A member of the RNA family "Small nucleolar RNA SNORD125" from Chauna torquata, 105 nucleotides long.
The family is grouped with related families in Rfam's "SNORD61 clan".
Gene Ontology terms of the family: nucleolus and RNA processing.
For this family Rfam cites "snoSeeker: an advanced computational package for screening of guide and orphan snoRNA genes in the human genome" (Yang et al., Nucleic Acids Res, 2006).
Pairs were carried over by alignment from the consensus structure, which was predicted with WAR.
RNA sequence: CCAGGGAACAGCCUCAGGUGAUGAUCCUUCUCUCCCUGAUGGCUCCAUUGGUGAUGAUCAUCAAGCCAAAGCCUCUAAGAAGUUGACUGAGGAGGCUGUUCCCCU
Numbered sequence: 001c002c003a004g005g006g007a008a009c010a011g012c013c014u015c016a017g018g019u020g021a022u023g024a025u026c027c028u029u030c031u032c033u034c035c036c037u038g039a040u041g042g043c044u045c046c047a048u049u050g051g052u053g054a055u056g057a058u059c060a061u062c063a064a065g066c067c068a069a070a071g072c073c074u075c076u077a078a079g080a081a082g083u084u085g086a087c088u089g090a091g092g093a094g095g096c097u098g099u100u101c102c103c104c105u
Base pairs, nucleotide, nucleotide: 007100008099009098010097011096012095013094014093015092